[Rfam]
RNA sequence: ACAAAGGCUCUUUUAAGAGCCACCCAUGGUGUCUAUUUAGAGAGCG
Numbered sequence: 001a002c003a004a005a006g007g008c009u010c011u012u013u014u015a016a017g018a019g020c021c022a023c024c025c026a027u028g029g030u031g032u033c034u035a036u037u038u039a040g041a042g043a044g045c046g
Stems, first nucleotide, its partner, number of pairs: 006021006
Dot-bracket structure: .....((((((....)))))).........................
A member of the RNA family "Histone 3' UTR stem-loop" from Sinocyclocheilus grahami, 46 nucleotides long. By type it is a cis-regulatory element. A search with the family's covariance model found it, with a score of 35 bits. About the family: The mRNAs of metazoan histone genes lack a poly-A tail. 3' end processing occurs at a site between a highly conserved stem-loop (modelled by this family) and a purine rich region around 20 nts downstream (the histone downstream element, or HDE). The stem-loop is bound by a 31 kDa stem-loop binding protein (SLBP - also termed the histone hairpin binding protein, or HBP). The base pairs follow the family's consensus structure, which is taken from published work.